[Rfam]
RNA sequence: GGAAUGCCGCGGCGGGGACGGCGAUUGGUCCGUAUGUGUGGUGCCACCGGCCGCCGGCUCCGCCCCGGCCCCC
Numbered sequence: 001g002g003a004a005u006g007c008c009g010c011g012g013c014g015g016g017g018a019c020g021g022c023g024a025u026u027g028g029u030c031c032g033u034a035u036g037u038g039u040g041g042u043g044c045c046a047c048c049g050g051c052c053g054c055c056g057g058c059u060c061c062g063c064c065c066c067g068g069c070c071c072c073c
Stems, first nucleotide, its partner, number of pairs: 001073002006069004011064007020055004025050005032044004
Dot-bracket structure: ((...((((.(((((((..((((.(((((..((((.....)))).))))).))))..))))))).))))..))
Overview
mir-1908 microRNA precursor family: a 73-nucleotide sequence from Homo sapiens. Lineage of the source: Eukaryota > Boreoeutheria > Euarchontoglires > Hominidae > Homo. Its family is annotated with miRNA-mediated post-transcriptional gene silencing and RISC complex in the Gene Ontology.